[Rfam]
RNA: Small nucleolar RNA snoR74
RNA sequence: AAAGAAGCAAUGGUUUGUCGUCUCUGUCAACUGGUCUCUUGUGAACUUCAAAAAAAUUAAUUCCUUUGUUAUUUGGUGAACCAUUGCCAUUAAUCCAAGUCAAAUGGUUCAAUAAACAAAAACUCAUCU
Numbered sequence: 001a002a003a004g005a006a007g008c009a010a011u012g013g014u015u016u017g018u019c020g021u022c023u024c025u026g027u028c029a030a031c032u033g034g035u036c037u038c039u040u041g042u043g044a045a046c047u048u049c050a051a052a053a054a055a056a057u058u059a060a061u062u063c064c065u066u067u068g069u070u071a072u073u074u075g076g077u078g079a080a081c082c083a084u085u086g087c088c089a090u091u092a093a094u095c096c097a098a099g100u101c102a103a104a105u106g107g108u109u110c111a112a113u114a115a116a117c118a119a120a121a122a123c124u125c126a127u128c129u
Stems, first nucleotide, its partner, number of pairs: 005048003012036001014034002017031001065120006077111007